About this RNA
The family of this 76-nucleotide sequence is "mir-1803 microRNA precursor microRNA precursor family". Rfam's curators put it in the seed alignment. A reference for the family is Gunaratne et al. (2011), "Song exposure regulates known and novel microRNAs in the zebra finch auditory forebrain", BMC Genomics. The family's consensus secondary structure was predicted with RNAalifold.
RNA sequence: AGGGCAUGAUCCAGAGCCCAUUGUAGUCAAUGGGAGACUUUUUCCAUUGACUUCAUCGGGGUUUGGAUCAGGCCUU
Numbered sequence: 001a002g003g004g005c006a007u008g009a010u011c012c013a014g015a016g017c018c019c020a021u022u023g024u025a026g027u028c029a030a031u032g033g034g035a036g037a038c039u040u041u042u043u044c045c046a047u048u049g050a051c052u053u054c055a056u057c058g059g060g061g062u063u064u065g066g067a068u069c070a071g072g073c074c075u076u
Stems, first nucleotide, its partner, number of pairs: 001076005007070009017060003022055002025052012